[Rfam]
RNA sequence: AAUCGAACAAGGCAAACCCGACGAAAGUCGGAGACGCAAAGCCACGGGCCUAAGGCGAAAGCUACGGCGGCCGGGUUGCCGAA
Numbered sequence: 001a002a003u004c005g006a007a008c009a010a011g012g013c014a015a016a017c018c019c020g021a022c023g024a025a026a027g028u029c030g031g032a033g034a035c036g037c038a039a040a041g042c043c044a045c046g047g048g049c050c051u052a053a054g055g056c057g058a059a060a061g062c063u064a065c066g067g068c069g070g071c072c073g074g075g076u077u078g079c080c081g082a083a
Base pairs, nucleotide, nucleotide: 012037013036018031019030020029021028022027040077041076042075043074045073046072047071048068049067050066055062056061
The family of this 83-nucleotide RNA sequence from Paenibacillus antri is "c-di-GMP-I riboswitch aptamer". It scores 82 bits against the family's covariance model. The source organism's lineage runs through Bacteria, Bacillati, Bacillota, Caryophanales and Paenibacillus.